Source information
ZMP/ZTP riboswitch aptamer (pfl RNA motif): an 88-nucleotide sequence from Streptomyces sp. YIM 130001. NCBI's taxonomy places the organism under Bacteria, Bacillati, Kitasatosporales, Streptomycetaceae, Streptomyces. Pairs were carried over by alignment from the consensus structure, which is taken from published work. The match comes from Rfam's covariance-model search (56 bits).
RNA sequence: AUGGCGGGCCGUGACUGGCGCUGAGGUGGAGCCACCACCGGGGAGCGGCUCCGAGAAGAUGUGAAUGCCGCGCGCCUGGGCGAUUGGU
Numbered sequence: 001a002u003g004g005c006g007g008g009c010c011g012u013g014a015c016u017g018g019c020g021c022u023g024a025g026g027u028g029g030a031g032c033c034a035c036c037a038c039c040g041g042g043g044a045g046c047g048g049c050u051c052c053g054a055g056a057a058g059a060u061g062u063g064a065a066u067g068c069c070g071c072g073c074g075c076c077u078g079g080g081c082g083a084u085u086g087g088u
Base pairs, nucleotide, nucleotide: 006051007050008049009048010047011046012045015042016041017076018075019074020073021072026038027037028036029035066082067081068080069079